A member of the RNA family "Rhodo-rpoB RNA" from Paracoccus alkenifer, 96 nucleotides long. The family's consensus secondary structure is taken from published work. Rfam classes the family as a cis-regulatory element. The organism belongs to Paracoccus, within Bacteria.
RNA sequence: GGUUCGGGAGCUGCGCGGUGGGACGCGCGGCACGAAUGGAGCCGCACCCCUGAUGUUCGUAUGCGUGCCGCGGAUCGGGCCCCGACGAUCCGCCGC
Numbered sequence: 001g002g003u004u005c006g007g008g009a010g011c012u013g014c015g016c017g018g019u020g021g022g023a024c025g026c027g028c029g030g031c032a033c034g035a036a037u038g039g040a041g042c043c044g045c046a047c048c049c050c051u052g053a054u055g056u057u058c059g060u061a062u063g064c065g066u067g068c069c070g071c072g073g074a075u076c077g078g079g080c081c082c083c084g085a086c087g088a089u090c091c092g093c094c095g096c
Stems, first nucleotide, its partner, number of pairs: 001043005010031008067096002070093002073090005